[Rfam]
RNA sequence: CAAGACGAUCCAGGGUGCGCUUUUUUUCACCGUAAUACAGAUCAAAGACCUUGAAAAUCUGAGGCCAGGCCUCAUCUCAUCUCCAGUAGCAUUUUGACCUGUAUUGGGAGGAAUCAUGCGUCUGGAUCGUCUUAC
Numbered sequence: 001c002a003a004g005a006c007g008a009u010c011c012a013g014g015g016u017g018c019g020c021u022u023u024u025u026u027u028c029a030c031c032g033u034a035a036u037a038c039a040g041a042u043c044a045a046a047g048a049c050c051u052u053g054a055a056a057a058u059c060u061g062a063g064g065c066c067a068g069g070c071c072u073c074a075u076c077u078c079a080u081c082u083c084c085a086g087u088a089g090c091a092u093u094u095u096g097a098c099c100u101g102u103a104u105u106g107g108g109a110g111g112a113a114u115c116a117u118g119c120g121u122c123u124g125g126a127u128c129g130u131c132u133u134a135c
Stems, first nucleotide, its partner, number of pairs: 002133011014122006021039001023037001025035001027034001049064005068073001080111004084106005
Dot-bracket structure: .(((((((((((.((((((.(.(.(.(......)).).).........(((((......)))))...(....)......(((((((((.............))))).)))).....)))))))))))))))))..
Yersinia sRNA 155(RyfD): a 135-nucleotide RNA sequence from Pantoea alhagi. NCBI's taxonomy places the organism under Bacteria, Pseudomonadati, Pseudomonadota, Gammaproteobacteria, Pantoea. Rfam's curators write: The sRNA was identified by and is confirmed to have a stable secondary structure by using genome-wide structure probing at different temperatures. The function is unknown.